[Rfam]
RNA sequence: AAACAACACUCUGUGGCAGAUGAUUGAAACUGUCCAUUGUUUGUGCUUGCUAUAGCAAGAAAGUCUAAGCUAUUCUGCUGUUCUCUAUUCAGUAAGAAAAGCCAUUACAUAGGCUUAAACAGU
Numbered sequence: 001a002a003a004c005a006a007c008a009c010u011c012u013g014u015g016g017c018a019g020a021u022g023a024u025u026g027a028a029a030c031u032g033u034c035c036a037u038u039g040u041u042u043g044u045g046c047u048u049g050c051u052a053u054a055g056c057a058a059g060a061a062a063g064u065c066u067a068a069g070c071u072a073u074u075c076u077g078c079u080g081u082u083c084u085c086u087a088u089u090c091a092g093u094a095a096g097a098a099a100a101g102c103c104a105u106u107a108c109a110u111a112g113g114c115u116u117a118a119a120c121a122g123u
Base pairs, nucleotide, nucleotide: 009045011043013037014036015035019034020033021032022031061116062115063114064113065112066111067110071109073107076104077103079101084097085096086095
Small nucleolar RNA SNORA28: a 123-nucleotide RNA from Orycteropus afer.
Lineage of the source: Eukaryota > Eumetazoa > Teleostomi > Sarcopterygii > Orycteropus afer.
Gene Ontology terms of the family: nucleolus and RNA processing.
ACA28 is a member of the H/ACA class of snoRNA that guide the sites of modification of uridines to pseudouridines.
It scores 91 bits against the family's covariance model.